RNA sequence: AUUCCCUUUUACCAACCGAUGCCGGAUAAUACCGCCCCGUUUGCCAUCGGGAUUCCAGGAGAAGACAUGCUA
Numbered sequence: 001a002u003u004c005c006c007u008u009u010u011a012c013c014a015a016c017c018g019a020u021g022c023c024g025g026a027u028a029a030u031a032c033c034g035c036c037c038c039g040u041u042u043g044c045c046a047u048c049g050g051g052a053u054u055c056c057a058g059g060a061g062a063a064g065a066c067a068u069g070c071u072a
Stems, first nucleotide, its partner, number of pairs: 036051004041046001